[Rfam]
RNA sequence: CGGUGACCACGCCAAACCGGGGGUGACCCCGGGACGGAAAGCCACGGGUCCGGGACGGCAGCAAUCACGCUGCCCCCGGGCAGCCGGGUUACUUGC
Number, nucleotide and partner (000 for none) at each position: 001c000002g000003g000004u000005g000006a000007c000008c000009a000010c000011g000012c037013c036014a000015a000016a000017c032018c031019g030020g029021g028022g027023g000024u000025g000026a000027c022028c021029c020030c019031g018032g017033g000034a000035c000036g013037g012038a000039a000040a090041g089042c088043c087044a000045c086046g085047g084048g081049u080050c079051c078052g077053g076054g075055a000056c000057g000058g000059c000060a000061g000062c000063a000064a000065u000066c000067a000068c000069g000070c000071u000072g000073c000074c000075c054076c053077c052078g051079g050080g049081c048082a000083g000084c047085c046086g045087g043088g042089u041090u040091a000092c000093u000094u000095g000096c000
RNA: c-di-GMP-I riboswitch aptamer